A member of the RNA family "Glycine riboswitch aptamer" from Nitrosovibrio tenuis, 99 nucleotides long. The organism belongs to Nitrosovibrio, within Bacteria. About the family: This family represents the bacterial glycine riboswitch. For this family Rfam cites "A glycine-dependent riboswitch that uses cooperative binding to control gene expression" (Mandal et al., Science, 2004). Its family is annotated with glycine biosynthetic process in the Gene Ontology.
RNA sequence: AUAGUUCAAGCGGAAGAGCGCGUCGAUUUCGUCGUCGCGGCCGAAGGCGCAACCCCCCGGAAUCGCUUAGGCGUAGAUCAAGUUGAUUGAUCGGUUAAA
Numbered sequence: 001a002u003a004g005u006u007c008a009a010g011c012g013g014a015a016g017a018g019c020g021c022g023u024c025g026a027u028u029u030c031g032u033c034g035u036c037g038c039g040g041c042c043g044a045a046g047g048c049g050c051a052a053c054c055c056c057c058c059g060g061a062a063u064c065g066c067u068u069a070g071g072c073g074u075a076g077a078u079c080a081a082g083u084u085g086a087u088u089g090a091u092c093g094g095u096u097a098a099a
Stems, first nucleotide, its partner, number of pairs: 006094002009091001011089003020038003040072003043068002047066003053060002